Shown here is a 349-nucleotide RNA from Cereibacter sphaeroides, a member of the family "Alphaproteobacteria transfer-messenger RNA". A reference for the family is Williams (2002), "The tmRNA Website: invasion by an intron", Nucleic Acids Res. The family's consensus secondary structure is taken from published work. Rfam classes the family as a non-coding RNA gene.
RNA sequence: CCACUUGCGUUUUUGCACCGGCGCGGCCAUAUUAUCUUCGUCCCGUAAGGGACUAUGGAUGUAGACGGGCUUGUGAAGCUGGAUCGGACGGGGGUGCGAUUCCCCCCACCUCCACCAUUUUACCCUUGGAAACAAGGGCUUGCGGGGGUGAUAUAGGGUCGACGGACGGUGGAGUGAGUACCUGCAUCUCGGUUGGACGCGCCGUUAUCUGCUCAAUCGCAUAGUUGCCAACGACAACCGUGCUCCGGUGGCUCUGGCUGCGUAAGCAGCUCGAACAUCGAAACUUAAGUCCUUGCGCUUAGCCGCGUAAGGCGGGGUUCGCAGGUACCUGGCAACAGAAACCUGCACU
Numbered sequence: 001c002c003a004c005u006u007g008c009g010u011u012u013u014u015g016c017a018c019c020g021g022c023g024c025g026g027c028c029a030u031a032u033u034a035u036c037u038u039c040g041u042c043c044c045g046u047a048a049g050g051g052a053c054u055a056u057g058g059a060u061g062u063a064g065a066c067g068g069g070c071u072u073g074u075g076a077a078g079c080u081g082g083a084u085c086g087g088a089c090g091g092g093g094g095u096g097c098g099a100u101u102c103c104c105c106c107c108a109c110c111u112c113c114a115c116c117a118u119u120u121u122a123c124c125c126u127u128g129g130a131a132a133c134a135a136g137g138g139c140u141u142g143c144g145g146g147g148g149u150g151a152u153a154u155a156g157g158g159u160c161g162a163c164g165g166a167c168g169g170u171g172g173a174g175u176g177a178g179u180a181c182c183u184g185c186a187u188c189u190c191g192g193u194u195g196g197a198c199g200c201g202c203c204g205u206u207a208u209c210u211g212c213u214c215a216a217u218c219g220c221a222u223a224g225u226u227g228c229c230a231a232c233g234a235c236a237a238c239c240g241u242g243c244u245c246c247g248g249u250g251g252c253u254c255u256g257g258c259u260g261c262g263u264a265a266g267c268a269g270c271u272c273g274a275a276c277a278u279c280g281a282a283a284c285u286u287a288a289g290u291c292c293u294u295g296c297g298c299u300u301a302g303c304c305g306c307g308u309a310a311g312g313c314g315g316g317g318u319u320c321g322c323a324g325g326u327a328c329c330u331g332g333c334a335a336c337a338g339a340a341a342c343c344u345g346c347a348c349u
Stems, first nucleotide, its partner, number of pairs: 040053005057189005067183002069179004080168002084165003090106005107150007190204004196214002199212002315330004321346006